A member of the RNA family "XIST RNA A repeat" from Pipistrellus kuhlii, 37 nucleotides long. A search with the family's covariance model found it, with a score of 58 bits. The organism belongs to Pipistrellus, within Eukaryota. For this family Rfam cites "The Xist RNA A-repeat comprises a novel AUCG tetraloop fold and a platform for multimerization" (Duszczyk et al., RNA, 2011). The family's consensus secondary structure was predicted with CMfinder.

Nucleotides: 037
Stems, first nucleotide, its partner, number of pairs: 003014004017026003
Number, partner (000 for none) and nucleotide at each position: 001000u002000u003014g004013c005012c006011c007000a008000u009000c010000g011006g012005g013004g014003c015000u016000u017026c018025g019024g020000a021000u022000a023000c024019c025018u026017g027000c028000u029000a030000u031000a032000a033000u034000u035000u036000u037000u